The record is a 78-nucleotide sequence from Lysinibacillus sphaericus, which matches "Pistol ribozyme" in Rfam. Taxonomically the source falls in Lysinibacillus sphaericus (Bacteria, Bacillati, Caryophanales, Lysinibacillus).
RNA sequence: ACUCGACUAAGCGAGUAUAAACAGGCAUUAGGCUUAGAGCGUUCUCACGUUAUCUGAAUGAUGAUGUGAGAGGUUGCA
Number, nucleotide and partner (000 for none) at each position: 001a016002c015003u014004c013005g000006a000007c037008u036009a035010a034011g033012c000013g004014a003015g002016u001017a000018u000019a000020a000021a000022c000023a000024g000025g077026c076027a075028u000029u000030a000031g000032g040033c011034u010035u009036a008037g007038a000039g000040c032041g000042u072043u071044c070045u069046c068047a067048c066049g065050u064051u063052a062053u061054c060055u000056g000057a000058a000059u000060g054061a053062u052063g051064a050065u049066g048067u047068g046069a045070g044071a043072g042073g000074u000075u027076g026077c025078a000